The family of this 99-nucleotide RNA sequence from Wenzhouxiangella sp. AB-CW3 is "t44 RNA".

RNA sequence: GGCGUGGCAAACCAAAAACACACGCUGGUCGGCACAUGCGGCGGGGUUGUCCGGGCCUUGGGGUUGCGGAUGGUCGCAUGGGAUCAGCGGAGGCCAAAA
Numbered sequence: 001g002g003c004g005u006g007g008c009a010a011a012c013c014a015a016a017a018a019c020a021c022a023c024g025c026u027g028g029u030c031g032g033c034a035c036a037u038g039c040g041g042c043g044g045g046g047u048u049g050u051c052c053g054g055g056c057c058u059u060g061g062g063g064u065u066g067c068g069g070a071u072g073g074u075c076g077c078a079u080g081g082g083a084u085c086a087g088c089g090g091a092g093g094c095c096a097a098a099a
Stems, first nucleotide, its partner, number of pairs: 023089008035080008049071005
Rfam's curators write: This family consists of a number of bacterial RNA genes of between 135 and 170 bases in length. A search with the family's covariance model found it, with a score of 52 bits. Rfam classes the family as a small RNA. On this family, see Tjaden et al., Nucleic Acids Res 2002: "Transcriptome analysis of Escherichia coli using high-density oligonucleotide probe arrays". The source organism's lineage runs through Bacteria, Pseudomonadati, Pseudomonadota, Wenzhouxiangellaceae and Wenzhouxiangella.